[Rfam]
RNA sequence: UUUGGUAUUUUCUCUACCUAACACUAUUUACACAUGUAAAUUAGUAAUAAUUUAUGUGAAGCUGUAAAGACAAUGUAGCCUCUCUUAAAAUGGGAAUGUUAAUAUAUUUUAAUAUGUUACCAGGAGCUAGUGUAAGUAA
Numbered sequence: 001u002u003u004g005g006u007a008u009u010u011u012c013u014c015u016a017c018c019u020a021a022c023a024c025u026a027u028u029u030a031c032a033c034a035u036g037u038a039a040a041u042u043a044g045u046a047a048u049a050a051u052u053u054a055u056g057u058g059a060a061g062c063u064g065u066a067a068a069g070a071c072a073a074u075g076u077a078g079c080c081u082c083u084c085u086u087a088a089a090a091u092g093g094g095a096a097u098g099u100u101a102a103u104a105u106a107u108u109u110u111a112a113u114a115u116g117u118u119a120c121c122a123g124g125a126g127c128u129a130g131u132g133u134a135a136g137u138a139a
Stems, first nucleotide, its partner, number of pairs: 002020001004018004028067005033058011081095004097112001117135004
Shown here is a 139-nucleotide RNA sequence from Ophiocordyceps australis, a member of the family "Group II catalytic intron D1-D4-7". NCBI's taxonomy places the organism under Eukaryota, Ascomycota, Hypocreomycetidae, Ophiocordycipitaceae, Ophiocordyceps. Rfam describes the family as follows. Group II introns are found in rRNA, tRNA and mRNA of organelles in fungi, plants and protists, and also in mRNA in bacteria. Pairs were carried over by alignment from the consensus structure. Its family is annotated with Group II intron splicing in the Gene Ontology. For this family Rfam cites "The ins and outs of group II introns" (Bonen and Vogel, Trends Genet, 2001).